[Rfam]
RNA sequence: AAGAGCCUCAAGCCAAUAAAGACCGAAAAGAUUGACUCAAGAAUAAA
Numbered sequence: 001a002a003g004a005g006c007c008u009c010a011a012g013c014c015a016a017u018a019a020a021g022a023c024c025g026a027a028a029a030g031a032u033u034g035a036c037u038c039a040a041g042a043a044u045a046a047a
Stems, first nucleotide, its partner, number of pairs: 007041002011037002014034004

Rfam assigns this 47-nucleotide sequence from Corymbia citriodora to the family "Plastid-rpl16 group II-D1 intron". Plastid-rpl16 is a non-coding RNA (ncRNA) recognised in plastids. It was recognised in and intronic region of a ribosome rpl16 gene. Pairs were carried over by alignment from the consensus structure, which was predicted with LocARNA. Taxonomically the source falls in Corymbia citriodora (Eukaryota, Streptophyta, malvids, Eucalypteae).